[Rfam]
RNA sequence: CUGGGGACGACCCCAGAAAGACCAAAAGCUGGGGACGACCCCA
Numbered sequence: 001c002u003g004g005g006g007a008c009g010a011c012c013c014c015a016g017a018a019a020g021a022c023c024a025a026a027a028g029c030u031g032g033g034g035a036c037g038a039c040c041c042c043a
Stems, first nucleotide, its partner, number of pairs: 001016006030043005